[Rfam]
RNA sequence: CCCCGCAUUCUGAAGUGAUUUUGGACCGCCUGUGUCCCGCUCCCUGGUAGUGCAGGCAGAGGAAACUCGGAAUGAGUUGUCCCAUGUUUGGGGGAGUCCACAUCCUCGCCUCCCCGUUCUGGAGCUUUCUUCCC
Numbered sequence: 001c002c003c004c005g006c007a008u009u010c011u012g013a014a015g016u017g018a019u020u021u022u023g024g025a026c027c028g029c030c031u032g033u034g035u036c037c038c039g040c041u042c043c044c045u046g047g048u049a050g051u052g053c054a055g056g057c058a059g060a061g062g063a064a065a066c067u068c069g070g071a072a073u074g075a076g077u078u079g080u081c082c083c084a085u086g087u088u089u090g091g092g093g094g095a096g097u098c099c100a101c102a103u104c105c106u107c108g109c110c111u112c113c114c115c116g117u118u119c120u121g122g123a124g125c126u127u128u129c130u131u132c133c134c
Stems, first nucleotide, its partner, number of pairs: 002056002005053005014045002017042002020039001023037004069130004074125001086117002090114002092111003096107001

Overview
The record is a 134-nucleotide RNA sequence from Phyllostomus discolor, which matches "Small nucleolar RNA SNORA71" in Rfam. Pairs were carried over by alignment from the consensus structure, which was predicted with PFOLD. Lineage of the source: Eukaryota > Craniata > Teleostomi > Euteleostomi > Phyllostomus. Gene Ontology terms of the family: nucleolus and RNA processing. The family's RNA type in Rfam is H/ACA-box small nucleolar RNA. The members of this family belong to the H/ACA class of snoRNAs which bind a number of proteins (including dyskerin, Gar1p and Nop10p) to form snoRNP complexes.